[Rfam]
RNA: MIR828 microRNA precursor family
Organism: Macleaya cordata
RNA sequence: AUAAUGUUUCUUGCUCAAAUGAGUAUUCCAACUGCUAGUAUACUACAGAUGAUGGCUCUUCUUCACUGAUGCUGCUAGCUGUUGUUGCUGUUACUGCAGUUGAGAUGCUCAUUUGAGCAAGUAAUGUUAA
Numbered sequence: 001a002u003a004a005u006g007u008u009u010c011u012u013g014c015u016c017a018a019a020u021g022a023g024u025a026u027u028c029c030a031a032c033u034g035c036u037a038g039u040a041u042a043c044u045a046c047a048g049a050u051g052a053u054g055g056c057u058c059u060u061c062u063u064c065a066c067u068g069a070u071g072c073u074g075c076u077a078g079c080u081g082u083u084g085u086u087g088c089u090g091u092u093a094c095u096g097c098a099g100u101u102g103a104g105a106u107g108c109u110c111a112u113u114u115g116a117g118c119a120a121g122u123a124a125u126g127u128u129a130a
Stems, first nucleotide, its partner, number of pairs: 004127005010121018029102007